Record summary: The record is a 67-nucleotide sequence from Rhizobium sp. RU20A, which matches "S-element" in Rfam. Lineage of the source: Bacteria > Alphaproteobacteria > Hyphomicrobiales > Rhizobiaceae > Rhizobium.
Nucleotides: 067
Base pairs, nucleotide, nucleotide: 010063011062012061013060014059017058018057019056020055022054023053024052025051027049029047031045032044033043034042035041
Number, partner (000 for none) and nucleotide at each position: 001000a002000g003000u004000c005000a006000a007000g008000c009000g010063u011062u012061u013060u014059u015000g016000g017058c018057a019056c020055c021000g022054u023053u024052u025051u026000g027049g028000u029047g030000a031045g032044c033043g034042g035041a036000u037000u038000u039000c040000u041035u042034u043033u044032g045031c046000c047029c048000g049027u050000g051025a052024a053023a054022a055020g056019g057018u058017g059014a060013a061012a062011g063010a064000g065000a066000u067000g